RNA sequence: AGGACCCAAUUCUCAUUGGUCAUGUGUCGGGAUCCAAUUAUCAUUGGGUCCUGUGUCAGGACCCAAUUCUCUUGGGUCCUGUGUCAGGACCUAAGGCUAAGGGGCCAU
Numbered sequence: 001a002g003g004a005c006c007c008a009a010u011u012c013u014c015a016u017u018g019g020u021c022a023u024g025u026g027u028c029g030g031g032a033u034c035c036a037a038u039u040a041u042c043a044u045u046g047g048g049u050c051c052u053g054u055g056u057c058a059g060g061a062c063c064c065a066a067u068u069c070u071c072u073u074g075g076g077u078c079c080u081g082u083g084u085c086a087g088g089a090c091c092u093a094a095g096g097c098u099a100a101g102g103g104g105c106c107a108u
Base pairs, nucleotide, nucleotide: 001108003106005104006103007102013096014095016093018091019090020089021088023086024085029080030079031078032077033076034075035074036073037072044066045065046064047063048062049061050060051059
Shown here is a 108-nucleotide sequence from Populus trichocarpa, a member of the family "MIR6450 microRNA precursor family". Rfam 15.1 lists 53 matches to the family in 7 species.